[Rfam]
RNA sequence: ACGAGGUCCGCACUGACCGCCGGCAGGGGCGGGGGACCCAAUUGCGGGCACCGGAAGUUCGGUGUCCUUGGGGUGAAGCCGGAGAACCGAUCUCGAUCGGGGACACGGCCGGGUGUUCUCCCACCCGAACCCGACAGCUGACCUCGUAGGCAUCAGGAGAGGCAUC
Numbered sequence: 001a002c003g004a005g006g007u008c009c010g011c012a013c014u015g016a017c018c019g020c021c022g023g024c025a026g027g028g029g030c031g032g033g034g035g036a037c038c039c040a041a042u043u044g045c046g047g048g049c050a051c052c053g054g055a056a057g058u059u060c061g062g063u064g065u066c067c068u069u070g071g072g073g074u075g076a077a078g079c080c081g082g083a084g085a086a087c088c089g090a091u092c093u094c095g096a097u098c099g100g101g102g103a104c105a106c107g108g109c110c111g112g113g114u115g116u117u118c119u120c121c122c123a124c125c126c127g128a129a130c131c132c133g134a135c136a137g138c139u140g141a142c143c144u145c146g147u148a149g150g151c152a153u154c155a156g157g158a159g160a161g162g163c164a165u166c
Stems, first nucleotide, its partner, number of pairs: 008150002013028002029147006039070002071132003079108003111126004

Background:
The record is a 166-nucleotide sequence from Cellulomonas sp. Leaf395, which matches "c-di-AMP riboswitch aptamer (ydaO/yuaA leader)" in Rfam.